Source information: This 202-nucleotide sequence from Tetracentron sinense belongs to the Rfam family "Listeria sRNA rliA". The literature on the family includes a 2007 paper in Nucleic Acids Res by Mandin et al., "Identification of new noncoding RNAs in Listeria monocytogenes and prediction of mRNA targets". Rfam classes the family as a small RNA.
RNA sequence: GCCUGAAUUGAUUCAAGCUCGAGCUGGGCUUGGCUUGGCUCGAGCUCGGCUUGAAUACUUUUUUUAAAAAAUAAUAAUAUUUUAUAUUAUUUUUAUAUAUAUUAAUGAUAUAUAUAAAUAAUAUUUUUAUUUUUUUAAAUAAAAUUCGAACCGAGCCGAGCUCGGGCCGAAUUGAGCCUCAAUCGAGCCGGGCUGAAUUAAA
Numbered sequence: 001g002c003c004u005g006a007a008u009u010g011a012u013u014c015a016a017g018c019u020c021g022a023g024c025u026g027g028g029c030u031u032g033g034c035u036u037g038g039c040u041c042g043a044g045c046u047c048g049g050c051u052u053g054a055a056u057a058c059u060u061u062u063u064u065u066a067a068a069a070a071a072u073a074a075u076a077a078u079a080u081u082u083u084a085u086a087u088u089a090u091u092u093u094u095a096u097a098u099a100u101a102u103u104a105a106u107g108a109u110a111u112a113u114a115u116a117a118a119u120a121a122u123a124u125u126u127u128u129a130u131u132u133u134u135u136u137a138a139a140u141a142a143a144a145u146u147c148g149a150a151c152c153g154a155g156c157c158g159a160g161c162u163c164g165g166g167c168c169g170a171a172u173u174g175a176g177c178c179u180c181a182a183u184c185g186a187g188c189c190g191g192g193c194u195g196a197a198u199u200a201a202a
Base pairs, nucleotide, nucleotide: 001029002028003027004026005025008022009021010020011019030196033193034192036190037189038188039187040186041185042184044151046149047148048147049146051084053082054081055080056079057078059076106144109141110140111139113137114136116132117131118130119129120128121127153163154162155161156160